[Rfam]
RNA sequence: AAUAGAUUUAUGUCACAUUAGUAUUUUUAUCCUGAAUUUUAGUAUUUUCAUCCUGGAACAAAUCCAAAUUAAAAUCCUGAAAUUAGGGAUAAGAAUACUGAUGUGACAUAAAACUAUU
Numbered sequence: 001a002a003u004a005g006a007u008u009u010a011u012g013u014c015a016c017a018u019u020a021g022u023a024u025u026u027u028u029a030u031c032c033u034g035a036a037u038u039u040u041a042g043u044a045u046u047u048u049c050a051u052c053c054u055g056g057a058a059c060a061a062a063u064c065c066a067a068a069u070u071a072a073a074a075u076c077c078u079g080a081a082a083u084u085a086g087g088g089a090u091a092a093g094a095a096u097a098c099u100g101a102u103g104u105g106a107c108a109u110a111a112a113a114c115u116a117u118u
Stems, first nucleotide, its partner, number of pairs: 001118005007112021029090005035084005041078002045074004

The record is a 118-nucleotide RNA from Gossypium australe, which matches "MIR7504 microRNA precursor family" in Rfam. Taxonomically the source falls in Gossypium (Eukaryota, eudicotyledons, rosids, Malvoideae). The match comes from Rfam's covariance-model search (92 bits). Rfam links the family to the GO terms miRNA-mediated post-transcriptional gene silencing and RISC complex.